[Rfam]
Nucleotides: 078
Stems, first nucleotide, its partner, number of pairs: 003075005010068003015063003020058004025053005
Number, partner (000 for none) and nucleotide at each position: 001000u002000u003075a004074c005073a006072g007071a008000a009000a010068c011067c012066c013000g014000u015063a016062g017061a018000u019000c020058c021057g022056a023055a024000c025053u026052u027051g028050u029049g030000u031000u032000g033000u034000a035000a036000a037000u038000a039000a040000c041000u042000u043000a044000a045000c046000u047000c048000u049029c050028a051027c052026a053025a054000a055023u056022u057021u058020g059000u060000u061017u062016c063015u064000a065000c066012g067011g068010g069000a070000a071007u072006c073005u074004g075003u076000c077000g078000a